[Rfam]
RNA sequence: CCUUGGACUGCGUCCAAGGCUAAGUUGUGUUGUGCCGUUGGCACA
Numbered sequence: 001c002c003u004u005g006g007a008c009u010g011c012g013u014c015c016a017a018g019g020c021u022a023a024g025u026u027g028u029g030u031u032g033u034g035c036c037g038u039u040g041g042c043a044c045a
Base pairs, nucleotide, nucleotide: 001019002018003017004016005015006014007013008012032044033043034042035041036040
Acido-Lenti-1 RNA: a 45-nucleotide RNA sequence from Pontiella desulfatans. It scores 37 bits against the family's covariance model.